A member of the RNA family "Bacillaceae-1 RNA" from Evansella caseinilytica, 70 nucleotides long. The family's consensus secondary structure is taken from published work.
[Rfam]
RNA sequence: UCAUCCCCAAUUCCGCCUAAGAAACGCUCACGUCCUGUGAGCAACGGCGGAAUGUCGUCGUCAUCCUGAC
Number, nucleotide and partner (000 for none) at each position: 001u000002c000003a000004u000005c000006c000007c000008c000009a000010a000011u052012u051013c050014c049015g048016c047017c046018u000019a000020a000021g000022a000023a000024a000025c000026g000027c041028u040029c039030a038031c037032g000033u000034c000035c000036u000037g031038u030039g029040a028041g027042c000043a000044a000045c000046g017047g016048c015049g014050g013051a012052a011053u000054g000055u000056c000057g000058u000059c000060g070061u069062c068063a000064u000065c000066c000067u000068g062069a061070c060